[Rfam]
RNA: SAM riboswitch aptamer (S box leader)
RNA sequence: AUCUUAUCAAGAGCAGGCGGAGGGACUAGCCCGAUGAAGCCCGGCAACCGGCGUCGCAUGACGCACGGUGCUAAUUCUUGCGAGAACGUUUAUGCGACGUUUCGGGAGAUGAGAG
Numbered sequence: 001a002u003c004u005u006a007u008c009a010a011g012a013g014c015a016g017g018c019g020g021a022g023g024g025a026c027u028a029g030c031c032c033g034a035u036g037a038a039g040c041c042c043g044g045c046a047a048c049c050g051g052c053g054u055c056g057c058a059u060g061a062c063g064c065a066c067g068g069u070g071c072u073a074a075u076u077c078u079u080g081c082g083a084g085a086a087c088g089u090u091u092a093u094g095c096g097a098c099g100u101u102u103c104g105g106g107a108g109a110u111g112a113g114a115g
Stems, first nucleotide, its partner, number of pairs: 002114007013042001016041003022032003026080001028078002043072004048068002051064004076107001081104005